[Rfam]
RNA sequence: UCUCCCAUUGCCACAUUUUCUCCUAGUAUUAGAUUUCAGUGUCUGUGCUUAUGGGGUAGAUUAAAAUUGCCAUGAUCUGAAGAAGGAAGAUUAAUUGUGUCCUCUUCCUAUAUGAAAUGGCUGAACAGGAAAAA
Number, nucleotide and partner (000 for none) at each position: 001u000002c000003u000004c055005c054006c053007a052008u000009u000010g000011c000012c041013a040014c039015a000016u000017u000018u000019u000020c000021u000022c000023c000024u000025a000026g000027u000028a000029u000030u000031a000032g000033a000034u000035u000036u000037c000038a000039g014040u013041g012042u000043c000044u000045g000046u000047g000048c000049u000050u000051a000052u007053g006054g005055g004056g000057u000058a000059g000060a000061u000062u000063a000064a000065a000066a000067u000068u000069g121070c120071c119072a118073u000074g000075a000076u000077c000078u000079g000080a000081a000082g000083a000084a000085g000086g000087a109088a000089g107090a106091u000092u000093a000094a000095u000096u000097g000098u000099g000100u000101c000102c000103u000104c000105u000106u090107c089108c000109u087110a000111u000112a000113u000114g000115a000116a000117a000118u072119g071120g070121c069122u000123g000124a000125a000126c000127a000128g000129g000130a000131a000132a000133a000134a000